RNA sequence: GCCGAGCCUGGUAACGUGGGCUUGUAACCUAUGUAGGGGCAAUAAUGUGGUAGAAUGUUAGGUUGAUAUCUUGAAGGCUGGGCUUCAAAUGGCUAAUGCUUGGCCUGCCCUAUCCAAGCAUGGAGUUCAGUCAUGUGGCCCAAACGAAAGUAUGGGCUUCUUGACUCCUAGAGUGGGGUGGACUGCGUGAGGCUGGUUUCACAGAGCAACGAAGAACUCCCGCUCUAUGCAGUGGAAGGAUAACGGGCCGGUGCUAUUCAAGUCCAACAAACACCUGAUGGGCAACCUAAUUAAACCAUCACUUUU
Numbered sequence: 001g002c003c004g005a006g007c008c009u010g011g012u013a014a015c016g017u018g019g020g021c022u023u024g025u026a027a028c029c030u031a032u033g034u035a036g037g038g039g040c041a042a043u044a045a046u047g048u049g050g051u052a053g054a055a056u057g058u059u060a061g062g063u064u065g066a067u068a069u070c071u072u073g074a075a076g077g078c079u080g081g082g083c084u085u086c087a088a089a090u091g092g093c094u095a096a097u098g099c100u101u102g103g104c105c106u107g108c109c110c111u112a113u114c115c116a117a118g119c120a121u122g123g124a125g126u127u128c129a130g131u132c133a134u135g136u137g138g139c140c141c142a143a144a145c146g147a148a149a150g151u152a153u154g155g156g157c158u159u160c161u162u163g164a165c166u167c168c169u170a171g172a173g174u175g176g177g178g179u180g181g182a183c184u185g186c187g188u189g190a191g192g193c194u195g196g197u198u199u200c201a202c203a204g205a206g207c208a209a210c211g212a213a214g215a216a217c218u219c220c221c222g223c224u225c226u227a228u229g230c231a232g233u234g235g236a237a238g239g240a241u242a243a244c245g246g247g248c249c250g251g252u253g254c255u256a257u258u259c260a261a262g263u264c265c266a267a268c269a270a271a272c273a274c275c276u277g278a279u280g281g282g283c284a285a286c287c288u289a290a291u292u293a294a295a296c297c298a299u300c301a302c303u304u305u306u
Base pairs, nucleotide, nucleotide: 001040002039003038004023005022006021007020008019009018010017028037029036030035044305045304047302048301049300050299051298053296056293057292058290059289060288061287062286063285064284065283070281071280075276076275077274080265081264082263083262084261085260087258088257090256091255092254094253095252100251101250102249103248104247105246106245107244109239110238113236114235115234116233118230119229120228121227122226123225124224125223126222129166130165131164132163133162135160137158138157139156140155141154142153144151145150168173175220176219177218178217179216184213186211187210188209193204194203195202
Plant signal recognition particle RNA: a 306-nucleotide sequence from Nicotiana attenuata. By type it is a non-coding RNA gene. The source organism's lineage runs through Eukaryota, Embryophyta, Euphyllophyta, asterids and Nicotiana. Gene Ontology terms of the family: signal recognition particle, endoplasmic reticulum targeting and SRP-dependent cotranslational protein targeting to membrane, signal sequence recognition. The match comes from Rfam's covariance-model search (242 bits).